[Rfam]
RNA sequence: AAGUCCUUUUAAUAGCGGUCCAGAGAGGCUGACAAAGGAUGGGAAUGAAGGUGAAAUCAGGCCUUCUUAUACCCUCUUUGUGCCCUCUUUAGGACAAAGAGGGUUUUUUAA
Numbered sequence: 001a002a003g004u005c006c007u008u009u010u011a012a013u014a015g016c017g018g019u020c021c022a023g024a025g026a027g028g029c030u031g032a033c034a035a036a037g038g039a040u041g042g043g044a045a046u047g048a049a050g051g052u053g054a055a056a057u058c059a060g061g062c063c064u065u066c067u068u069a070u071a072c073c074c075u076c077u078u079u080g081u082g083c084c085c086u087c088u089u090u091a092g093g094a095c096a097a098a099g100a101g102g103g104u105u106u107u108u109u110a111a
Stems, first nucleotide, its partner, number of pairs: 003040007016031005047066006069106001071104011
Shown here is a 111-nucleotide RNA from Rossellomorea vietnamensis, a member of the family "PyrR binding site". A search with the family's covariance model found it, with a score of 59 bits. By type it is a cis-regulatory element.